[Rfam]
RNA sequence: AUAAGUUUGUGGCCAUAGCAGAAGUGCUCAUAGCAUGGCCUGUCAGAUUUCGGUGAAAUCUGUGAAUUUUGCU
Dot-bracket structure: ..........[[[[..((((((((((.......)))]]]]...(((((((.....)))))))....)))))))